[Rfam]
RNA sequence: UGUCUCCUCCAAGCCUCCUAAGGGAUUGGAAUUAGCCCGCUACCGCAAGGUCAGCGGGUUUUUUUUC
Dot-bracket structure: .......(((((.((.......)).)))))...((((((((...........)))))))).......
Numbered sequence: 001u002g003u004c005u006c007c008u009c010c011a012a013g014c015c016u017c018c019u020a021a022g023g024g025a026u027u028g029g030a031a032u033u034a035g036c037c038c039g040c041u042a043c044c045g046c047a048a049g050g051u052c053a054g055c056g057g058g059u060u061u062u063u064u065u066u067c
Stems, first nucleotide, its partner, number of pairs: 008030005014024002034060008
A member of the RNA family "Betaproteobacteria toxic small RNA" from Parundibacterium terreum, 67 nucleotides long.
The literature on the family includes a 2012 paper in Genome Res by Kimelman et al., "A vast collection of microbial genes that are toxic to bacteria".
The match comes from Rfam's covariance-model search (53 bits).
NCBI's taxonomy places the organism under Bacteria, Pseudomonadati, Burkholderiales, Oxalobacteraceae, Parundibacterium.
Rfam describes the family as follows. Overexpression in amino aid rich medium attenuates growth, suggesting role in repressing amino acid intake and metabolism.